[Rfam]
RNA sequence: CGCUUCUGCCCCUCCUGGGCGUUUCCUCCCUAUCUCUGGGCCCGGCGGCUGCGUCGGGCCUUUUUUUCUGUCCCG
Numbered sequence: 001c002g003c004u005u006c007u008g009c010c011c012c013u014c015c016u017g018g019g020c021g022u023u024u025c026c027u028c029c030c031u032a033u034c035u036c037u038g039g040g041c042c043c044g045g046c047g048g049c050u051g052c053g054u055c056g057g058g059c060c061u062u063u064u065u066u067u068c069u070g071u072c073c074c075g
Base pairs, nucleotide, nucleotide: 008020009019010018011017039060040059041058042057043056044055045054046053047052
Dot-bracket structure: .......((((.....))))..................(((((((((....)))))))))...............

About this RNA:
Shown here is a 75-nucleotide sequence from Caulobacter henricii, a member of the family "Makes More Granules Regulator RNA (mmgR)". The literature on the family includes a 2016 paper in Mol Phylogenet Evol by Lagares et al., "Phylogenetic distribution and evolutionary pattern of an alpha-proteobacterial small RNA gene that controls polyhydroxybutyrate accumulation in Sinorhizobium meliloti". The base pairs follow the family's consensus structure.